[Rfam]
RNA sequence: GCAACCUCAAGCUGGCCAGCGAGUACCCCAGCGUGUUCCGUUCGCUGCUGGGCAUCUCGUGGAUGUGGUUCUUCGGCGCGGUGUUCCUGUCGCAGUUCCCAUCCUUCGCGCGCGAUGUGCUG
Numbered sequence: 001g002c003a004a005c006c007u008c009a010a011g012c013u014g015g016c017c018a019g020c021g022a023g024u025a026c027c028c029c030a031g032c033g034u035g036u037u038c039c040g041u042u043c044g045c046u047g048c049u050g051g052g053c054a055u056c057u058c059g060u061g062g063a064u065g066u067g068g069u070u071c072u073u074c075g076g077c078g079c080g081g082u083g084u085u086c087c088u089g090u091c092g093c094a095g096u097u098c099c100c101a102u103c104c105u106u107c108g109c110g111c112g113c114g115a116u117g118u119g120c121u122g
Stems, first nucleotide, its partner, number of pairs: 010049003014045001018041001021038006051121005057115005063105001065103001067099002071095002074092005080087002
RNA: Burkholderia RNA 11